[Rfam]
RNA sequence: UGACGGGGGCCCGCACAAGCAGCGGAGCGUGUGGUUUAAUUCGACGCAACGCGAAGAACCUUACCAGGGCUUGACAUGCCACCGAACCUGGCUGAAAGGCUGGGGUGCCCGGUGAGGGAGCGGUGGCACAGGUGCUGCAUGGCUGUCGUCAGCUCGUGCCGUGAGGUGUUGGGUUAAGUCCCGCAACGAGCGCAACCCUCGGGGUCAGUUACGCGGGUGUCUGACCCGACUGCCGGGGAAAGCCCGGAGGAAGGAGGGGAUGACGUCAAGUCAGCAUGGCCCUGACGCCCUGGGCGACACACACGCUACAGUGACCGGGACAGUGGGCAGCGAAGGGGCGACCUGGAGCCAAUCCCGCAAACCCGGUCGUGGUGGGGAUCGCAGGCUGCAACCCGCCUGCGUGAACGCGGAGUUGCUAGUAACCGCCGGUCAGCCAUACGGCGGUGAAUACGUUCCCGGGCCUUGUACACACCGCCCGUCACGUCACGAAAGCUGGCUUCACCUGAAGCCGGUGGGCCAACCGGCGCACGCUGGGGGCAGCCGUCGAGGGUGGGGCUGGUGAUUGGGACGAAGUCGUAACAAGG
Dot-bracket structure: (((((.(((((((.((..((((((.((((((((((....((((........))))........(((((((......((.(((((..(((((((....))))))).(.((.......)).)))))).))..((.((((..((((((.((...(((((((((....)))..((((......))))..)))))).....((((.(((((((...((....)).)))))))..((.(((((.....))))).)).....))))....)).).)))...))))))))....)))))))...)).)))))))).)...(((((((.....(((..((...(((....)))...))....))).....)))))))......(....(((((((........)))))))....).....))))).....(((((((..........)))))))......))...)))))))))).))..(.(..((...((((.(((..((((((((((((....(.((((..(((..(((((....))))).))).)))).)...))))))))))))..))).))))....))...)..).
Bacterial small subunit ribosomal RNA: a 584-nucleotide part of an RNA from Thermomicrobium roseum. Its family is annotated with structural constituent of ribosome and ribosome in the Gene Ontology. Clan: SSU clan.